A member of the RNA family "Bacterial RNase P class A" from Draconibacterium aestuarii, 428 nucleotides long. It is annotated as a ribozyme.

RNA sequence: GCGGCAGGCCGCUUUAUCGCUGCUUCGGUUAAACGGGGCAGAGGAAAGUCCGGGCAACGCAGGGCGCCGUGUUUCCUAGCGGGAAGGUCUUUGAAAGGGGACAGCAACGUAACAGAAAAUAACCACCUUGUUGUGGCGUGUCCACGACGGGGAACGGGUGAAAAGGUGCGGUAAAAGCGCACCGGUGAUGGUGGUAACAUCGUCAGCCGUACGUCUCACGGGUUGCAAGGCCAUGUAUAUCCAAAGUGUUUGCCGCUGUUGCGGUACAGCAAAACGGCCCGUUUUGUUCUCAACGCACAAGAGACUUUGGAGGGGUAGGCUGCAGGAUUCCGACAGUGAUGUCGGGACUAGAUAAAUGAUAAAGGCUUUUCGUUUGUUUUCGGAUGGAUGGAAGAGUACAGGACCCGGCUUACAGGCCUGCCACUAUU
Numbered sequence: 001g002c003g004g005c006a007g008g009c010c011g012c013u014u015u016a017u018c019g020c021u022g023c024u025u026c027g028g029u030u031a032a033a034c035g036g037g038g039c040a041g042a043g044g045a046a047a048g049u050c051c052g053g054g055c056a057a058c059g060c061a062g063g064g065c066g067c068c069g070u071g072u073u074u075c076c077u078a079g080c081g082g083g084a085a086g087g088u089c090u091u092u093g094a095a096a097g098g099g100g101a102c103a104g105c106a107a108c109g110u111a112a113c114a115g116a117a118a119a120u121a122a123c124c125a126c127c128u129u130g131u132u133g134u135g136g137c138g139u140g141u142c143c144a145c146g147a148c149g150g151g152g153a154a155c156g157g158g159u160g161a162a163a164a165g166g167u168g169c170g171g172u173a174a175a176a177g178c179g180c181a182c183c184g185g186u187g188a189u190g191g192u193g194g195u196a197a198c199a200u201c202g203u204c205a206g207c208c209g210u211a212c213g214u215c216u217c218a219c220g221g222g223u224u225g226c227a228a229g230g231c232c233a234u235g236u237a238u239a240u241c242c243a244a245a246g247u248g249u250u251u252g253c254c255g256c257u258g259u260u261g262c263g264g265u266a267c268a269g270c271a272a273a274a275c276g277g278c279c280c281g282u283u284u285u286g287u288u289c290u291c292a293a294c295g296c297a298c299a300a301g302a303g304a305c306u307u308u309g310g311a312g313g314g315g316u317a318g319g320c321u322g323c324a325g326g327a328u329u330c331c332g333a334c335a336g337u338g339a340u341g342u343c344g345g346g347a348c349u350a351g352a353u354a355a356a357u358g359a360u361a362a363a364g365g366c367u368u369u370u371c372g373u374u375u376g377u378u379u380u381c382g383g384a385u386g387g388a389u390g391g392a393a394g395a396g397u398a399c400a401g402g403a404c405c406c407g408g409c410u411u412a413c414a415g416g417c418c419u420g421c422c423a424c425u426a427u428u
Stems, first nucleotide, its partner, number of pairs: 001424001003422008011413001012364007020041008046411003050408005055225004062298001064296002067221005072086005087102001088100004103216002107214005123157002126152011165183006185207001186205008229321004240311005289303003328347008
Taxonomically the source falls in Draconibacterium (Bacteria, Pseudomonadati, Bacteroidia, Prolixibacteraceae).